[Rfam]
RNA sequence: GAUGAGGAUAGAGGUCGCGGCUUUUAUAGGAAUCUGUACGAGAUACAAAAGAUAUCGAGGACUACAGAAGAGGGAAAAGCUGCCGAAGCCCGCACUGCAUCUUUUGUGCAAACGGGCUGGGGCUGUACUCGAAAGGGACAGAACUGUCACGUUGGCGAGCCUGCGCUGACGUGUUGUGCUAUCUUCCGU
Numbered sequence: 001g002a003u004g005a006g007g008a009u010a011g012a013g014g015u016c017g018c019g020g021c022u023u024u025u026a027u028a029g030g031a032a033u034c035u036g037u038a039c040g041a042g043a044u045a046c047a048a049a050a051g052a053u054a055u056c057g058a059g060g061a062c063u064a065c066a067g068a069a070g071a072g073g074g075a076a077a078a079g080c081u082g083c084c085g086a087a088g089c090c091c092g093c094a095c096u097g098c099a100u101c102u103u104u105u106g107u108g109c110a111a112a113c114g115g116g117c118u119g120g121g122g123c124u125g126u127a128c129u130c131g132a133a134a135g136g137g138a139c140a141g142a143a144c145u146g147u148c149a150c151g152u153u154g155g156c157g158a159g160c161c162u163g164c165g166c167u168g169a170c171g172u173g174u175u176g177u178g179c180u181a182u183c184u185u186c187c188g189u
Stems, first nucleotide, its partner, number of pairs: 006184006017083009033068006087118006096110004119145002123141004128136002148173009
Rfam assigns this 189-nucleotide RNA sequence from Brevibacillus panacihumi to the family "Lysine riboswitch aptamer". A search with the family's covariance model found it, with a score of 82 bits. The source organism's lineage runs through Bacteria, Bacillati, Caryophanales, Paenibacillaceae and Brevibacillus panacihumi.